[Rfam]
RNA sequence: CUACCGGCGUCGAGAGGCGACGGGACGCGCGCUCAGAAGUCAGCAGAGGCCAUAGUAGGUGCCGAUAUGGACCGAAGGGC
Numbered sequence: 001c002u003a004c005c006g007g008c009g010u011c012g013a014g015a016g017g018c019g020a021c022g023g024g025a026c027g028c029g030c031g032c033u034c035a036g037a038a039g040u041c042a043g044c045a046g047a048g049g050c051c052a053u054a055g056u057a058g059g060u061g062c063c064g065a066u067a068u069g070g071a072c073c074g075a076a077g078g079g080c
Stems, first nucleotide, its partner, number of pairs: 001027001004023003008019004040047002049080003058073003062069001
This 80-nucleotide RNA sequence belongs to the Rfam family "Group II catalytic intron D1-D4-1". Rfam describes the family as follows. Group II introns are found in rRNA, tRNA and mRNA of organelles in fungi, plants and protists, and also in mRNA in bacteria. The family has 237 seed sequences and 2,508 matches in Rfam 15.1. Its family is annotated with Group II intron splicing in the Gene Ontology.